[Rfam]
The family of this 65-nucleotide sequence from Pogona vitticeps is "Small nucleolar RNA SNORD42". The family's RNA type in Rfam is C/D-box small nucleolar RNA. snoRNA U42 is found in intron 3 of the ribosomal protein L23a (RPL23a) gene in humans and is also present in mice. NCBI's taxonomy places the organism under Eukaryota, Metazoa, Gnathostomata, Acrodonta, Pogona.
RNA sequence: GUGCAGAUGAUGGAAACAAUUUUCACCUGAUCAGAGUGAUGUUUUCAAAGGAACCACUGAUGCAC
Numbered sequence: 001g002u003g004c005a006g007a008u009g010a011u012g013g014a015a016a017c018a019a020u021u022u023u024c025a026c027c028u029g030a031u032c033a034g035a036g037u038g039a040u041g042u043u044u045u046c047a048a049a050g051g052a053a054c055c056a057c058u059g060a061u062g063c064a065c
Stems, first nucleotide, its partner, number of pairs: 001065005